[Rfam]
RNA sequence: GCGGCGAUGAUGAUUGGCGCAGGGGUACGGACCUCAGCUGGAUCAUGGGAGCUGAAUGUGAGCCGGGCCUUCCCUGUGGGGCGGACGUGUGGUCUGCCGCCGGGGAGCACGUUCACAUGAGAAUUUCGCCAGACACUGAGCCGC
Numbered sequence: 001g002c003g004g005c006g007a008u009g010a011u012g013a014u015u016g017g018c019g020c021a022g023g024g025g026u027a028c029g030g031a032c033c034u035c036a037g038c039u040g041g042a043u044c045a046u047g048g049g050a051g052c053u054g055a056a057u058g059u060g061a062g063c064c065g066g067g068c069c070u071u072c073c074c075u076g077u078g079g080g081g082c083g084g085a086c087g088u089g090u091g092g093u094c095u096g097c098c099g100c101c102g103g104g105g106a107g108c109a110c111g112u113u114c115a116c117a118u119g120a121g122a123a124u125u126u127c128g129c130c131a132g133a134c135a136c137u138g139a140g141c142c143g144c
Stems, first nucleotide, its partner, number of pairs: 001144005
Overview
This 144-nucleotide RNA from Ornithorhynchus anatinus belongs to the Rfam family "Small nucleolar RNA SNORD94". The family's RNA type in Rfam is C/D-box small nucleolar RNA. The organism belongs to Ornithorhynchus, within Eukaryota. The match comes from Rfam's covariance-model search (113 bits). A reference for the family is Galardi et al. (2002), "Purified box C/D snoRNPs are able to reproduce site-specific 2'-O-methylation of target RNA in vitro", Mol Cell Biol. The base pairs follow the family's consensus structure, which was predicted with RNAalifold.